The family of this 154-nucleotide RNA from Levilinea saccharolytica is "Ribosomal protein L10 leader". The literature on the family includes a 1994 paper in Prog Nucleic Acid Res Mol Biol by Zengel and Lindahl, "Diverse mechanisms for regulating ribosomal protein synthesis in Escherichia coli". It is annotated as a cis-regulatory leader. Rfam describes the family as follows. This family is a putative r-protein leader autoregulatory structure found in B. subtilis and other low-GC Gram-positive bacteria. Lineage of the source: Bacteria > Bacillati > Chloroflexota > Anaerolineales > Levilinea.

RNA sequence: UUGAAUAAGCCCGUAUCACCGUAGAAAGCUGGUGCCAACAUUGGCUUAAUAUCCUGCCGAGGUGAAGUGCGCGAGAAUGUCCCCCAGCCGUUGCGGCUGAUUUCCUGCGUCUUUGCCUGGCAGUUUUCGGGCGAAGACGUUUUAUUUUUCAGGA
Numbered sequence: 001u002u003g004a005a006u007a008a009g010c011c012c013g014u015a016u017c018a019c020c021g022u023a024g025a026a027a028g029c030u031g032g033u034g035c036c037a038a039c040a041u042u043g044g045c046u047u048a049a050u051a052u053c054c055u056g057c058c059g060a061g062g063u064g065a066a067g068u069g070c071g072c073g074a075g076a077a078u079g080u081c082c083c084c085c086a087g088c089c090g091u092u093g094c095g096g097c098u099g100a101u102u103u104c105c106u107g108c109g110u111c112u113u114u115g116c117c118u119g120g121c122a123g124u125u126u127u128c129g130g131g132c133g134a135a136g137a138c139g140u141u142u143u144a145u146u147u148u149u150c151a152g153g154a
Base pairs, nucleotide, nucleotide: 028057029056031054032053034045035044036043108139109138110137111136112135113134114133115132116131117130118129119128120127